RNA sequence: CAAGGCACCGUUUACCAGCACGGGCGCGGAGUUUACUCCUCGCCCGUGCACGUAUGUAAGGGCUGGAUAAAAAAA
Dot-bracket structure: ...((.........)).(((((((((.((((....)))).)))))))))..........................
Numbered sequence: 001c002a003a004g005g006c007a008c009c010g011u012u013u014a015c016c017a018g019c020a021c022g023g024g025c026g027c028g029g030a031g032u033u034u035a036c037u038c039c040u041c042g043c044c045c046g047u048g049c050a051c052g053u054a055u056g057u058a059a060g061g062g063c064u065g066g067a068u069a070a071a072a073a074a075a
Stems, first nucleotide, its partner, number of pairs: 004016002018049009028039004
Source information:
The record is a 75-nucleotide RNA sequence from Enterobacterales bacterium CwR94, which matches "tpke11" in Rfam. On this family, see Hershberg et al., Nucleic Acids Res 2003: "A survey of small RNA-encoding genes in Escherichia coli". Rfam links the family to the GO term response to temperature stimulus.